[Rfam]
RNA sequence: GUUCCCGGAGGUCAACACCCGACAGCGCGAUGCGCCCUCGGGUGCCGUUCGG
Numbered sequence: 001g002u003u004c005c006c007g008g009a010g011g012u013c014a015a016c017a018c019c020c021g022a023c024a025g026c027g028c029g030a031u032g033c034g035c036c037c038u039c040g041g042g043u044g045c046c047g048u049u050c051g052g
Stems, first nucleotide, its partner, number of pairs: 016044007025035004
Shown here is a 52-nucleotide RNA from Rhizobium sp. Leaf371, a member of the family "ffh sRNA".
The match comes from Rfam's covariance-model search (65 bits).
The literature on the family includes a 2009 paper in BMC Genomics by Meyer et al., "Identification of candidate structured RNAs in the marine organism 'Candidatus Pelagibacter ubique'".